[Rfam]
RNA sequence: UCGUGGCUGGAACCGGUGCUAAAGGGCCUUUAACACCGGCGCGUAACACCAGUCGGUGUUAAAGGGACCCUUUAGCACCGGUUCCAGCCACGGA
Numbered sequence: 001u002c003g004u005g006g007c008u009g010g011a012a013c014c015g016g017u018g019c020u021a022a023a024g025g026g027c028c029u030u031u032a033a034c035a036c037c038g039g040c041g042c043g044u045a046a047c048a049c050c051a052g053u054c055g056g057u058g059u060u061a062a063a064g065g066g067a068c069c070c071u072u073u074a075g076c077a078c079c080g081g082u083u084c085c086a087g088c089c090a091c092g093g094a
Stems, first nucleotide, its partner, number of pairs: 003091024029065002032060003036056002043049002
Rfam assigns this 94-nucleotide RNA sequence from Sorghum bicolor to the family "MIR5387 microRNA precursor family". It scores 81 bits against the family's covariance model. Gene Ontology terms of the family: miRNA-mediated post-transcriptional gene silencing and RISC complex.